Alphaproteobacteria transfer-messenger RNA: a 356-nucleotide sequence from a Sphingomonadaceae bacterium. For this family Rfam cites "Phylogenetic analysis of tmRNA secondary structure" (Williams and Bartel, RNA, 1996). Lineage of the source: Bacteria > Pseudomonadati > Pseudomonadota > Sphingomonadales > Sphingomonadaceae. By type it is a non-coding RNA gene.

[Rfam]
RNA sequence: CCACUGGAACCAACCGCGCGUUCGCGCUAUAUGCAUCGUGCGUCCCGGUAACGGGCAGCUAUGGCGAUAAAUCGUAUCGUGAACUAGGUACAGCGGACCCGGGGGCGGUACCCGGCGGCUCCACCACUCGACUCCCGGUUGUCGCGGGGAGGACAUGGGGCCGAAAUAGGAUCGACGUGUAUUGAACGACGACUGCUUUCGCCCGGCCUGAAACUGCCGUUAAAGCGUUCAAAACCAGAGAAAUGCCAACGACAACGAGGCAUUCGCAAUCGCAGCGUAACCUAAAGUCCUCACGGAUUUAGUUACACUGGCCGAAAGCGCGGUCCGGGCCGCACCGGGCAACAGAAGCGGACACC
Numbered sequence: 001c002c003a004c005u006g007g008a009a010c011c012a013a014c015c016g017c018g019c020g021u022u023c024g025c026g027c028u029a030u031a032u033g034c035a036u037c038g039u040g041c042g043u044c045c046c047g048g049u050a051a052c053g054g055g056c057a058g059c060u061a062u063g064g065c066g067a068u069a070a071a072u073c074g075u076a077u078c079g080u081g082a083a084c085u086a087g088g089u090a091c092a093g094c095g096g097a098c099c100c101g102g103g104g105g106c107g108g109u110a111c112c113c114g115g116c117g118g119c120u121c122c123a124c125c126a127c128u129c130g131a132c133u134c135c136c137g138g139u140u141g142u143c144g145c146g147g148g149g150a151g152g153a154c155a156u157g158g159g160g161c162c163g164a165a166a167u168a169g170g171a172u173c174g175a176c177g178u179g180u181a182u183u184g185a186a187c188g189a190c191g192a193c194u195g196c197u198u199u200c201g202c203c204c205g206g207c208c209u210g211a212a213a214c215u216g217c218c219g220u221u222a223a224a225g226c227g228u229u230c231a232a233a234a235c236c237a238g239a240g241a242a243a244u245g246c247c248a249a250c251g252a253c254a255a256c257g258a259g260g261c262a263u264u265c266g267c268a269a270u271c272g273c274a275g276c277g278u279a280a281c282c283u284a285a286a287g288u289c290c291u292c293a294c295g296g297a298u299u300u301a302g303u304u305a306c307a308c309u310g311g312c313c314g315a316a317a318g319c320g321c322g323g324u325c326c327g328g329g330c331c332g333c334a335c336c337g338g339g340c341a342a343c344a345g346a347a348g349c350g351g352a353c354a355c356c
Base pairs, nucleotide, nucleotide: 040059041058044055045054046053047052063203064202065201066200067199074196075195076194077192078191079190080189089181090180091179093178094177095176099115100114101113102112103111116163117162118161119160120159121158122157204219205218206217207216209231210230211229215225321337322336323335324334327353330350

Rfam's curators write: Bacterial tmRNA, also known as 10Sa RNA or SsrA, is named for its dual tRNA and mRNA-like properties. Its role is to liberate the mRNA from a stalled ribosome. To accomplish this part of the tmRNA is used as a reading frame that ends in a translation stop signal. The broken mRNA is replaced in the ribosome by the tmRNA and translation of the tmRNA leads to addition of a proteolysis tag to the incomplete protein enabling recognition by a protease. Its family is annotated with RNA catabolic process in the Gene Ontology.